[Rfam]
RNA sequence: AUGGAGGUGAUGAUUCUAUCAAGAUAGAUAACGAUUAUAAAUGUGCUGUUUUUUCUUCUAAGAGAAAAUUUUCCAAGCCAGGAAUCUGAUUCAU
Numbered sequence: 001a002u003g004g005a006g007g008u009g010a011u012g013a014u015u016c017u018a019u020c021a022a023g024a025u026a027g028a029u030a031a032c033g034a035u036u037a038u039a040a041a042u043g044u045g046c047u048g049u050u051u052u053u054u055c056u057u058c059u060a061a062g063a064g065a066a067a068a069u070u071u072u073c074c075a076a077g078c079c080a081g082g083a084a085u086c087u088g089a090u091u092c093a094u
Base pairs, nucleotide, nucleotide: 001094002093003092004091005090
Dot-bracket structure: (((((....................................................................................)))))
Small nucleolar RNA Z103: a 94-nucleotide RNA sequence from Kingdonia uniflora.
Rfam classes the family as a C/D-box small nucleolar RNA.
Lineage of the source: Eukaryota > Streptophytina > Magnoliopsida > Mesangiospermae > Kingdonia.
The family has 12 seed sequences and 2,844 matches in Rfam 15.1.
For this family Rfam cites "The high diversity of snoRNAs in plants: identification and comparative study of 120 snoRNA genes from Oryza sativa" (Chen et al., Nucleic Acids Res, 2003).
A search with the family's covariance model found it, with a score of 52 bits.
Pairs were carried over by alignment from the consensus structure, which was predicted with PFOLD.